[Rfam]
RNA sequence: CCUUGUAGUCUUCCACAGCUUUCUUGAACUGCGUCUUUCCUUCUGGAAUGGAAGAUUAGGGUUAGGGUUGCAGUUCAAUAAAGCUGUGGGAAAUUACAGGGA
Numbered sequence: 001c002c003u004u005g006u007a008g009u010c011u012u013c014c015a016c017a018g019c020u021u022u023c024u025u026g027a028a029c030u031g032c033g034u035c036u037u038u039c040c041u042u043c044u045g046g047a048a049u050g051g052a053a054g055a056u057u058a059g060g061g062u063u064a065g066g067g068u069u070g071c072a073g074u075u076c077a078a079u080a081a082a083g084c085u086g087u088g089g090g091a092a093a094u095u096a097c098a099g100g101g102a
Stems, first nucleotide, its partner, number of pairs: 003099005013089003017085006024078004029073005

MIR396 microRNA precursor family: a 102-nucleotide sequence from Dendrobium catenatum. Rfam links the family to the GO terms miRNA-mediated post-transcriptional gene silencing and RISC complex. The literature on the family includes a 2004 paper in Mol Cell by Jones-Rhoades and Bartel, "Computational identification of plant microRNAs and their targets, including a stress-induced miRNA". A search with the family's covariance model found it, with a score of 82 bits.